[Rfam]
RNA: MIR1507 microRNA precursor family
RNA sequence: CUAUGUUUGGUAGAGGUGUAUGGAAUGAAAAAUGGGAAGGGCGUUUUCGGUUGAGUUCAUGAACUUCCUCUUUUUCAUUCCAUACAUCAUCUAUCUAACAUUGU
Numbered sequence: 001c002u003a004u005g006u007u008u009g010g011u012a013g014a015g016g017u018g019u020a021u022g023g024a025a026u027g028a029a030a031a032a033u034g035g036g037a038a039g040g041g042c043g044u045u046u047u048c049g050g051u052u053g054a055g056u057u058c059a060u061g062a063a064c065u066u067c068c069u070c071u072u073u074u075u076c077a078u079u080c081c082a083u084a085c086a087u088c089a090u091c092u093a094u095c096u097a098a099c100a101u102u103g104u
Stems, first nucleotide, its partner, number of pairs: 005099003009095001011093004015088018034070003038066003